[Rfam]
RNA sequence: UUUCCCAGCAUUGUACCCAGAGUCUCUCUGCAGACAUUGCACCUGGAGCUGCCCCAUAAAAAACCCCAAAU
Numbered sequence: 001u002u003u004c005c006c007a008g009c010a011u012u013g014u015a016c017c018c019a020g021a022g023u024c025u026c027u028c029u030g031c032a033g034a035c036a037u038u039g040c041a042c043c044u045g046g047a048g049c050u051g052c053c054c055c056a057u058a059a060a061a062a063a064c065c066c067c068a069a070a071u
Stems, first nucleotide, its partner, number of pairs: 006051004017046004022035004
A member of the RNA family "U1A polyadenylation inhibition element (PIE)" from Sterrhoptilus dennistouni, 71 nucleotides long. About the family: This family represents the U1A polyadenylation inhibition element (PIE). PIE is a regulatory RNA which is responsible for the regulation of the length of the polyA tail of the U1A pre-mRNA. The PIE is located in the U1A mRNA 3' UTR. PIE adopts a U-shaped structure, with binding sites for a single U1A protein at each bend and when complexed with the two proteins it blocks activity of poly(A) polymerase (PAP), and inhibits its activity. The literature on the family includes a 2004 paper in Biochemistry by Clerte and Hall, "Global and Local Dynamics of the U1A Polyadenylation Inhibition Element (PIE) RNA and PIE RNA-U1A Complexes".